[Rfam]
mir-128 microRNA precursor family: an 82-nucleotide sequence from Eleutherodactylus coqui. On this family, see Xu et al., FEBS Lett 2006: "Identification of microRNAs from different tissues of chicken embryo and adult chicken". The family's consensus secondary structure was predicted with RNAalifold.

RNA sequence: GAGCGGCGGGAUGCGGGCCCGGGGCGCUGUAUGAGAGGGUUUAAGUUUCUCACAGUGAACCGGUCUCUUUUCCAGCCACUUU
Numbered sequence: 001g002a003g004c005g006g007c008g009g010g011a012u013g014c015g016g017g018c019c020c021g022g023g024g025c026g027c028u029g030u031a032u033g034a035g036a037g038g039g040u041u042u043a044a045g046u047u048u049c050u051c052a053c054a055g056u057g058a059a060c061c062g063g064u065c066u067c068u069u070u071u072c073c074a075g076c077c078a079c080u081u082u
Stems, first nucleotide, its partner, number of pairs: 006076002009073002015067003019063003025057006033051003
Dot-bracket structure: .....((.((....(((.(((...((((((..(((.............)))))))))...))).)))....)).))......